The record is a 194-nucleotide RNA sequence from Venturia nashicola, which matches "U2 spliceosomal RNA" in Rfam. For this family Rfam cites "A conserved pseudouridine modification in eukaryotic U2 snRNA induces a change in branch-site architecture" (Newby and Greenbaum, RNA, 2001). The base pairs follow the family's consensus structure, which is taken from published work. NCBI's taxonomy places the organism under Eukaryota, Fungi, Dikarya, Venturiales, Venturia. Rfam describes the family as follows. U2 is a small nuclear RNA (snRNA) component of the spliceosome (involved in pre-mRNA splicing). Complementary binding between U2 snRNA (in an area lying towards the 5' end but 3' to hairpin I) and the branchpoint sequence (BPS) of the intron results the bulging out of an unpaired adenosine, on the BPS, which initiates a nucleophilic attack at the intronic 5' splice site, thus starting the first of two transesterification reactions that mediate splicing. It is annotated as a spliceosomal small nuclear RNA. Its family is annotated with pre-mRNA branch point binding, mRNA branch site recognition and U2 snRNP in the Gene Ontology.

RNA sequence: UCAGCUCUCUUUGCCUUUUGGCUUAGAUCAAGUGUAGUAUCUGUUCUUUUCAGUUUAAUCUCUGAAACGUGGCUACGGCCACAUUCUAUGAUUAUUCUUAUUUUUGAUCCCUCGUCGGUUGGCCGCUCAGCUUGCUGAUGUCAACGGGCACUGUGUCGCUGGUAUUGCACUACCUCCAGCUGACGCGAAGCUUU
Dot-bracket structure: .......(((..(((....)))..)))....................((((((........)))))).(((((....)))))...............................(((.((((.....((((....))))...)))).)))..(((((((((((.............))))).)))))).......
Numbered sequence: 001u002c003a004g005c006u007c008u009c010u011u012u013g014c015c016u017u018u019u020g021g022c023u024u025a026g027a028u029c030a031a032g033u034g035u036a037g038u039a040u041c042u043g044u045u046c047u048u049u050u051c052a053g054u055u056u057a058a059u060c061u062c063u064g065a066a067a068c069g070u071g072g073c074u075a076c077g078g079c080c081a082c083a084u085u086c087u088a089u090g091a092u093u094a095u096u097c098u099u100a101u102u103u104u105u106g107a108u109c110c111c112u113c114g115u116c117g118g119u120u121g122g123c124c125g126c127u128c129a130g131c132u133u134g135c136u137g138a139u140g141u142c143a144a145c146g147g148g149c150a151c152u153g154u155g156u157c158g159c160u161g162g163u164a165u166u167g168c169a170c171u172a173c174c175u176c177c178a179g180c181u182g183a184c185g186c187g188a189a190g191c192u193u194u
Stems, first nucleotide, its partner, number of pairs: 008027003013022003048067006069082005114149003118145004127138004152187006158180005